[Rfam]
The family of this 89-nucleotide RNA sequence from Raphanus sativus is "Small nucleolar RNA R16". The organism belongs to Raphanus, within Eukaryota. Rfam classes the family as a C/D-box small nucleolar RNA.

RNA sequence: GUUGGCAGAUGAUGAAUUGAUUAAUUUAUGCUUAAUUAUGCAGAAUAAUAGUGUUGACAAACAAUCUCCGCUUAUUAUCUGAUGCCAUG
Numbered sequence: 001g002u003u004g005g006c007a008g009a010u011g012a013u014g015a016a017u018u019g020a021u022u023a024a025u026u027u028a029u030g031c032u033u034a035a036u037u038a039u040g041c042a043g044a045a046u047a048a049u050a051g052u053g054u055u056g057a058c059a060a061a062c063a064a065u066c067u068c069c070g071c072u073u074a075u076u077a078u079c080u081g082a083u084g085c086c087a088u089g
Base pairs, nucleotide, nucleotide: 003087004086005085006084007083
Dot-bracket structure: ..(((((...........................................................................)))))..